The record is a 54-nucleotide RNA sequence from Triplophysa tibetana, which matches "UnaL2 LINE 3' element" in Rfam. The family's consensus secondary structure is taken from published work.
RNA sequence: UCCCUAACACUUUGUAAGUCGCUUUGGAUAAAAGCAUCUGCUAAAUGACUAAAU
Numbered sequence: 001u002c003c004c005u006a007a008c009a010c011u012u013u014g015u016a017a018g019u020c021g022c023u024u025u026g027g028a029u030a031a032a033a034g035c036a037u038c039u040g041c042u043a044a045a046u047g048a049c050u051a052a053a054u
Stems, first nucleotide, its partner, number of pairs: 013043001014041003021035005